[Rfam]
RNA: Small nucleolar RNA ACA64
RNA sequence: AGGCCUAGGCCUAGGCCUAGGCCUAGGCCUAGGCCUAGGCCUAGAGCCUAGGCCUAAACCUAGGCCUAGGCCUAGGCCUAGAGCCUAAGCCUAAACCUAAACCUAGAGCCUAGAGCCUAGGCCUAAACCUAA
Numbered sequence: 001a002g003g004c005c006u007a008g009g010c011c012u013a014g015g016c017c018u019a020g021g022c023c024u025a026g027g028c029c030u031a032g033g034c035c036u037a038g039g040c041c042u043a044g045a046g047c048c049u050a051g052g053c054c055u056a057a058a059c060c061u062a063g064g065c066c067u068a069g070g071c072c073u074a075g076g077c078c079u080a081g082a083g084c085c086u087a088a089g090c091c092u093a094a095a096c097c098u099a100a101a102c103c104u105a106g107a108g109c110c111u112a113g114a115g116c117c118u119a120g121g122c123c124u125a126a127a128c129c130u131a132a
Stems, first nucleotide, its partner, number of pairs: 001042003006037004014029004061125001063123005072113006